[Rfam]
RNA: Small nucleolar RNA snoR145
RNA sequence: UGGCGAAGGUCCCAGCAGGGAGGUGAGAAACUCUAUGAAAAUUGAGACCUCUUUAACACAAAUUAUAACCUUCGCACAUGAAAUGCCGAAAUAUAAGAUGCCCAAGUGCUUAAUAUUUGGAUCAUCUCGAACCCUCGGCUAAAUUUUC
Dot-bracket structure: ..(((((((.(((....)))....(((...(((.(......).)))....)))...............))))))).........(((((.......((.(.((((((.......))))))..).))........))))).........